[Rfam]
RNA: Small nucleolar RNA SNORD42
RNA sequence: GUGUACAUGAUGUAAAACACUGGUCUGAUGUGUGAUGUCAUCAAAGGAACCACUGACACAC
Dot-bracket structure: ((((.....................................................))))